[Rfam]
RNA sequence: GACAGUCCAAAGCCGCGAGGCUCGCACCGCACAGGACGCGUCUUUCCGUCCACGCUCGCGAGCGGGCUAAGGUCUGAGUACUCUAUUUCCACCCGGCUUCCAUUCCUUCAUCAUCCCCCACAGGCUCUAGCUGUGCCUGGCCGUAAUUGGCUGAGCGACGCACCAGAAACACGGCCCCACGAGUCGGAUACUGUCUGUGUCCCGCUCGUGUGCGGUUCGUUCUGCUUAGCCGAACGAAAAAGGUUGGCAGACGAUCGGUGGUCUCAGACCCAGCGUGGUCGAAGAUGAGACCAUUGCUGGCCAUGGAAUAUGUCCCUCUUAUCGGGCGGGCACGUCUACCUCCUCACGUUGGCGUCUCCUCUCUAUUGUAUCUCUCGGUGGUCUCGCUCAGAGAAUGCCACCAAGCAAGCAUUAAGAUCAUGAUCAUGACAUGUAUCCUGUUUGUUGUACCUGGGAGAUGGACGAGGAGAGUAGUUGCGACGACAACGCAAGUGCCCGUCCUUCAGUGCACUUCGCGGCCCGCAUAUUAGGUUGCUGACUCGUUCGGCCCUUCUGCGGAACUCGAUUCAGACUACUCUGGGCUGUC
Dot-bracket structure: ((((..(((..(((((((.(((((.........(((((........))))).......)))))..........[[[[[..(((.......................................(((.(.....).)))((((((....))))))((.((((............(((............................................................................................................................)))........)))).))......)))..........................................................................................................................................................................................)))))))(((((.(.........................).))))).......]]]]].......)))..))))
RNA: Nuclear RNase P
Organism: Laetiporus sulphureus